[Rfam]
RNA sequence: AAAGCCCCGAAUUCAUACCUCAACUUGGCGGAAGGGAAUAUGAAGUCAGGGCCAAGCAUAAAACCUAAGAAGGAUAUUAGCACAUGCACAGUGCAAGACAACAGCCCGCCAGAAGC
Numbered sequence: 001a002a003a004g005c006c007c008c009g010a011a012u013u014c015a016u017a018c019c020u021c022a023a024c025u026u027g028g029c030g031g032a033a034g035g036g037a038a039u040a041u042g043a044a045g046u047c048a049g050g051g052c053c054a055a056g057c058a059u060a061a062a063a064c065c066u067a068a069g070a071a072g073g074a075u076a077u078u079a080g081c082a083c084a085u086g087c088a089c090a091g092u093g094c095a096a097g098a099c100a101a102c103a104g105c106c107c108g109c110c111a112g113a114a115g116c
Stems, first nucleotide, its partner, number of pairs: 004052004009047002013043005020035002025112007
Shown here is a 116-nucleotide RNA from Erwinia tasmaniensis, a member of the family "Pseudoknot of the regulatory region of the repBA gene". Taxonomically the source falls in Erwinia (Bacteria, Gammaproteobacteria, Enterobacterales, Erwiniaceae). Gene Ontology term of the family: translation.